[Rfam]
RNA: chrB-b RNA
RNA sequence: ACGGGCCAAUGCGGACGCCCGUUCAGGCGGGCCGCCGCCCAAGAUCCGC
Number, nucleotide and partner (000 for none) at each position: 001a022002c021003g020004g019005g018006c017007c000008a000009a000010u000011g049012c048013g047014g046015a045016c000017g006018c005019c004020c003021g002022u001023u000024c000025a000026g039027g038028c037029g036030g035031g000032c000033c000034g000035c030036c029037g028038c027039c026040c000041a000042a000043g000044a000045u015046c014047c013048g012049c011